[Rfam]
RNA: mir-1421 microRNA precursor family
RNA sequence: GGGUGUGUGGAAGUUGCACAUCAUGCCGUGUGAUGGUGGAAUAUGCUGCAUAGUGUGUGACCUCCCUACACAGU
Numbered sequence: 001g002g003g004u005g006u007g008u009g010g011a012a013g014u015u016g017c018a019c020a021u022c023a024u025g026c027c028g029u030g031u032g033a034u035g036g037u038g039g040a041a042u043a044u045g046c047u048g049c050a051u052a053g054u055g056u057g058u059g060a061c062c063u064c065c066c067u068a069c070a071c072a073g074u
Base pairs, nucleotide, nucleotide: 003071004070005069006068007067009065010064011063013061014060015059016058017057018056019055020054021053023051024050025049026048
Dot-bracket structure: ..(((((.(((.(((((((((.((((.....................)))).))))))))).))).)))))...